A member of the RNA family "MIR168 microRNA precursor family" from Actinidia chinensis, 121 nucleotides long. The literature on the family includes a 2002 paper in Genes Dev by Reinhart et al., "MicroRNAs in plants". The source organism's lineage runs through Eukaryota, asterids, Ericales, Actinidiaceae and Actinidia chinensis. Pairs were carried over by alignment from the consensus structure, which was predicted with WAR.
[Rfam]
RNA sequence: GUUGCGGCGGUCUCUAAUUCGCUUGGUGCAGGUCGGGAACGACUUCGGCGGCGGCGAUUGGCCAACUUGGGGCUGAAUUAGAUCCCGCCUUGCAUCAACUGAAUCGGAUCUCGCGGUGAAU
Numbered sequence: 001g002u003u004g005c006g007g008c009g010g011u012c013u014c015u016a017a018u019u020c021g022c023u024u025g026g027u028g029c030a031g032g033u034c035g036g037g038a039a040c041g042a043c044u045u046c047g048g049c050g051g052c053g054g055c056g057a058u059u060g061g062c063c064a065a066c067u068u069g070g071g072g073c074u075g076a077a078u079u080a081g082a083u084c085c086c087g088c089c090u091u092g093c094a095u096c097a098a099c100u101g102a103a104u105c106g107g108a109u110c111u112c113g114c115g116g117u118g119a120a121u
Stems, first nucleotide, its partner, number of pairs: 013108002017104004023098010034087005040081001